[Rfam]
RNA sequence: CUGAAAGUUUAGUAAUGAACUUAGAUCGCAUUGCAGAAGUCAGCAAACGGCAUAGUAGGUUAACUCUUUAACUGAAGGCC
Number, nucleotide and partner (000 for none) at each position: 001c024002u023003g000004a000005a022006a021007g020008u019009u018010u017011a016012g000013u000014a000015a000016u011017g010018a009019a008020c007021u006022u005023a002024g001025a000026u000027c000028g000029c000030a000031u000032u000033g000034c000035a000036g000037a000038a000039g048040u047041c000042a000043g000044c000045a000046a000047a040048c039049g080050g079051c078052a000053u000054a000055g000056u000057a000058g073059g072060u071061u070062a069063a068064c000065u000066c000067u000068u063069u062070a061071a060072c059073u058074g000075a000076a000077g000078g051079c050080c049

Description:
A member of the RNA family "Group II catalytic intron D1-D4-1" from Oleispira antarctica, 80 nucleotides long. A search with the family's covariance model found it, with a score of 51 bits. Group II introns are found in rRNA, tRNA and mRNA of organelles in fungi, plants and protists, and also in mRNA in bacteria.